[Rfam]
RNA sequence: CGCUAUACUAGCCAGUGUGACAGCCGGUCCAGCGCCUUCGGACCGGUUUUUUAUGUAU
Dot-bracket structure: .((((...))))....(.(...((((((((.........)))))))).).).......
Numbered sequence: 001c002g003c004u005a006u007a008c009u010a011g012c013c014a015g016u017g018u019g020a021c022a023g024c025c026g027g028u029c030c031a032g033c034g035c036c037u038u039c040g041g042a043c044c045g046g047u048u049u050u051u052u053a054u055g056u057a058u
Stems, first nucleotide, its partner, number of pairs: 002012004017051001019049001023047008

The family of this 58-nucleotide sequence from Klebsiella pneumoniae is "Enterobacterial sRNA STnc450".